[Rfam]
RNA sequence: AUCUUUCGGGUCGAGUGGUUCUUAACAGUUCAACAGUUCAUUACCAAAAUUGUGAAAUGUUUAGGACCACUUGAUCAGAC
Numbered sequence: 001a002u003c004u005u006u007c008g009g010g011u012c013g014a015g016u017g018g019u020u021c022u023u024a025a026c027a028g029u030u031c032a033a034c035a036g037u038u039c040a041u042u043a044c045c046a047a048a049a050u051u052g053u054g055a056a057a058u059g060u061u062u063a064g065g066a067c068c069a070c071u072u073g074a075u076c077a078g079a080c
Stems, first nucleotide, its partner, number of pairs: 014071006021064002024061004029056004

Source information
mir-203 microRNA precursor family: an 80-nucleotide RNA sequence from Albula goreensis. On this family, see Lim et al., Science 2003: "Vertebrate microRNA genes". Its family is annotated with miRNA-mediated post-transcriptional gene silencing and RISC complex in the Gene Ontology. The family's consensus secondary structure was predicted with RNAalifold. A search with the family's covariance model found it, with a score of 95 bits.